[Rfam]
Rfam assigns this 177-nucleotide RNA sequence from Mariniplasma anaerobium to the family "Lysine riboswitch aptamer". Taxonomically the source falls in Mariniplasma (Bacteria, Mycoplasmatota, Mollicutes, Acholeplasmataceae).
RNA sequence: AGUCUAUACAGAGGUGCAAUUUAUUGGGUAUACUUAUCGUAGUGAGAAUCUGGACAUUCAAGUGAUAAGUAGAAGGCAUAAAUUGCCGAAAGAUUAAUGUUGUCCAAUCAUUAAUCUUGAUAAUUGAAGGUACGCUUCAAUUAUUGCCAUUAAGUGUAAUGGAGAGCUGUUAUUAUA
Numbered sequence: 001a002g003u004c005u006a007u008a009c010a011g012a013g014g015u016g017c018a019a020u021u022u023a024u025u026g027g028g029u030a031u032a033c034u035u036a037u038c039g040u041a042g043u044g045a046g047a048a049u050c051u052g053g054a055c056a057u058u059c060a061a062g063u064g065a066u067a068a069g070u071a072g073a074a075g076g077c078a079u080a081a082a083u084u085g086c087c088g089a090a091a092g093a094u095u096a097a098u099g100u101u102g103u104c105c106a107a108u109c110a111u112u113a114a115u116c117u118u119g120a121u122a123a124u125u126g127a128a129g130g131u132a133c134g135c136u137u138c139a140a141u142u143a144u145u146g147c148c149a150u151u152a153a154g155u156g157u158a159a160u161g162g163a164g165a166g167c168u169g170u171u172a173u174u175a176u177a
Stems, first nucleotide, its partner, number of pairs: 008170004016086009031071010090118010101107001119145011147162006
Dot-bracket structure: .......((((....(((((((((......((((((((((.....................))))))))))......)))))))))...((((((((((.(.....).))))))))))(((((((((((.....))))))))))).((((((....))))))....)))).......